[Rfam]
The family of this 115-nucleotide RNA from Trifolium pratense is "MIR2593 microRNA precursor family".
RNA sequence: UUAUAUGCAAAAAACCACUUUUUAGAUUCAUUGGGAAAUUGAUGUAUUUGGUCUGUAAUAUAGACCACAUACAUUAGUUUUCCAAUGAACCUAAAAAAUGGUUUUUUGCUUAUAA
Number, nucleotide and partner (000 for none) at each position: 001u000002u114003a113004u112005a111006u000007g109008c000009a107010a106011a105012a104013a103014a000015c101016c100017a099018c000019u097020u096021u095022u094023u093024a092025g091026a000027u089028u088029c087030a086031u085032u084033g083034g082035g081036a080037a079038a078039u077040u076041g075042a074043u073044g072045u000046a000047u000048u000049u067050g066051g065052u064053c000054u000055g000056u000057a000058a000059u000060a000061u000062a000063g000064a052065c051066c050067a049068c000069a000070u000071a000072c044073a043074u042075u041076a040077g039078u038079u037080u036081u035082c034083c033084a032085a031086u030087g029088a028089a027090c000091c025092u024093a023094a022095a021096a020097a019098a000099u017100g016101g015102u000103u013104u012105u011106u010107u009108g000109c007110u000111u005112a004113u003114a002115a000
Notes: Taxonomically the source falls in Trifolium (Eukaryota, Streptophyta, Magnoliopsida, eudicotyledons). A search with the family's covariance model found it, with a score of 106 bits.